The record is a 277-nucleotide sequence from Colletotrichum spaethianum, which matches "Fungal signal recognition particle RNA" in Rfam. Its family is annotated with signal recognition particle, endoplasmic reticulum targeting, signal recognition particle, plasma membrane targeting and SRP-dependent cotranslational protein targeting to membrane, signal sequence recognition in the Gene Ontology.
RNA sequence: CGGCUGUAAUGGUCAAAUGGUUGAAGGCUUUCAUUAUUCUUCUUCCGCUACCCCAUCCACAUUGGAACCCUCUAGCGGCGCCCAGUGCGAAUGCUGCGGUGGCCACCCACUCGCAUGGGUAACCUGCGAUCGCUGCGUGUGGCCCUAAGCAAUGAAGAUAACACUUGAGGGAGGCUUCACUCUGCAGAGAUAUCUUCACCGUCGCAUGGCGUGCUGGAUUACGAUCGCUAGGGGCUUGGGGUACUGGUUGAAGAUGGAGAUGCCAACUCCAAUUUUU
Numbered sequence: 001c002g003g004c005u006g007u008a009a010u011g012g013u014c015a016a017a018u019g020g021u022u023g024a025a026g027g028c029u030u031u032c033a034u035u036a037u038u039c040u041u042c043u044u045c046c047g048c049u050a051c052c053c054c055a056u057c058c059a060c061a062u063u064g065g066a067a068c069c070c071u072c073u074a075g076c077g078g079c080g081c082c083c084a085g086u087g088c089g090a091a092u093g094c095u096g097c098g099g100u101g102g103c104c105a106c107c108c109a110c111u112c113g114c115a116u117g118g119g120u121a122a123c124c125u126g127c128g129a130u131c132g133c134u135g136c137g138u139g140u141g142g143c144c145c146u147a148a149g150c151a152a153u154g155a156a157g158a159u160a161a162c163a164c165u166u167g168a169g170g171g172a173g174g175c176u177u178c179a180c181u182c183u184g185c186a187g188a189g190a191u192a193u194c195u196u197c198a199c200c201g202u203c204g205c206a207u208g209g210c211g212u213g214c215u216g217g218a219u220u221a222c223g224a225u226c227g228c229u230a231g232g233g234g235c236u237u238g239g240g241g242u243a244c245u246g247g248u249u250g251a252a253g254a255u256g257g258a259g260a261u262g263c264c265a266a267c268u269c270c271a272a273u274u275u276u277u
Base pairs, nucleotide, nucleotide: 002014003013004012019274020273021272022271023270025268027264029262031260032259034257035256036255040252041251042250045247046246047245049243050242051241052240053239059063069234070233071232073230074229075228076227077226079223080222082217083216084215085214086213087212088211089210091207092206093205094204096202097201098200099199101144103142104141105140106139108137111129112128113127114126115125117124118123145149153198154197155196156195157194158193159192164189165188166187171182172181173180

A reference for the family is Rosenblad et al. (2009), "Kinship in the SRP RNA family", RNA Biol. The source organism's lineage runs through Eukaryota, Opisthokonta, Fungi, Hypocreomycetidae and Colletotrichum spaethianum species complex.